[Rfam]
Shown here is a 73-nucleotide sequence from Bombyx mori, a member of the family "mir-2816 microRNA precursor family".
Pairs were carried over by alignment from the consensus structure, which was predicted with RNAalifold.
RNA sequence: CUUAACUCUACUCGAGUGAGGUAGGUCGAGGUAUUGCGUCACCAUGACAUCAUCAGUUUGAAGAAAAUUUGAU
Numbered sequence: 001c002u003u004a005a006c007u008c009u010a011c012u013c014g015a016g017u018g019a020g021g022u023a024g025g026u027c028g029a030g031g032u033a034u035u036g037c038g039u040c041a042c043c044a045u046g047a048c049a050u051c052a053u054c055a056g057u058u059u060g061a062a063g064a065a066a067a068u069u070u071g072a073u
Stems, first nucleotide, its partner, number of pairs: 002072004009064001012061005017055003021051001025048004030043001